This 151-nucleotide sequence from Aquamicrobium sp. LC103 belongs to the Rfam family "speF leader". For this family Rfam cites "A survey of sRNA families in alpha-proteobacteria" (del Val et al., RNA Biol, 2012). It scores 87 bits against the family's covariance model.

RNA sequence: UGCCGGUCGUCCAUAGACCGGGGUUACUGAAGAGGCACACCUUCCUUGCCGGCAGUGCGGACAGGGUUUCCCAUCCAAGCCAAGGCAGACAAAGCGGAUCAAGGCCAGGUGCGGCCAUGAUCCAUAACCGCGCGAAGCGUCUUCAUGGUUC
Numbered sequence: 001u002g003c004c005g006g007u008c009g010u011c012c013a014u015a016g017a018c019c020g021g022g023g024u025u026a027c028u029g030a031a032g033a034g035g036c037a038c039a040c041c042u043u044c045c046u047u048g049c050c051g052g053c054a055g056u057g058c059g060g061a062c063a064g065g066g067u068u069u070c071c072c073a074u075c076c077a078a079g080c081c082a083a084g085g086c087a088g089a090c091a092a093a094g095c096g097g098a099u100c101a102a103g104g105c106c107a108g109g110u111g112c113g114g115c116c117a118u119g120a121u122c123c124a125u126a127a128c129c130g131c132g133c134g135a136a137g138c139g140u141c142u143u144c145a146u147g148g149u150u151c
Stems, first nucleotide, its partner, number of pairs: 001023001003021006034050004057133003085095001103116004
About this RNA
Rfam links the family to the GO term regulation of gene expression.